RNA sequence: CCCGUGGCUGUAUGAUGAAAUAAAUGUUGGUAGGGACAUCUGAGUACAUGUGAAGAAAUGCCAACAUUUCUGAUUGCAUGGG
Numbered sequence: 001c002c003c004g005u006g007g008c009u010g011u012a013u014g015a016u017g018a019a020a021u022a023a024a025u026g027u028u029g030g031u032a033g034g035g036a037c038a039u040c041u042g043a044g045u046a047c048a049u050g051u052g053a054a055g056a057a058a059u060g061c062c063a064a065c066a067u068u069u070c071u072g073a074u075u076g077c078a079u080g081g082g
Base pairs, nucleotide, nucleotide: 001082002081003080004079005078